[Rfam]
The record is a 66-nucleotide RNA from Cylicocyclus nassatus, which matches "Small nucleolar RNA sn668" in Rfam.
Pairs were carried over by alignment from the consensus structure, which was predicted with WAR.
Rfam classes the family as a C/D-box small nucleolar RNA.
The literature on the family includes a 2002 paper in Biochem Biophys Res Commun by Higa et al., "Location of 2(')-O-methyl nucleotides in 26S rRNA and methylation guide snoRNAs in Caenorhabditis elegans".
The family has 6 seed sequences and 27 matches in Rfam 15.1.
Lineage of the source: Eukaryota > Metazoa > Eumetazoa > Nematoda > Cylicocyclus.
Gene Ontology terms of the family: nucleolus and RNA processing.
RNA sequence: UGUCGAUGAUGUUGUUUCAAGACGGGACUUACAAGAGAAUGAUUAUACUCAAGAAGCACUGAGGCA
Numbered sequence: 001u002g003u004c005g006a007u008g009a010u011g012u013u014g015u016u017u018c019a020a021g022a023c024g025g026g027a028c029u030u031a032c033a034a035g036a037g038a039a040u041g042a043u044u045a046u047a048c049u050c051a052a053g054a055a056g057c058a059c060u061g062a063g064g065c066a
Stems, first nucleotide, its partner, number of pairs: 001066004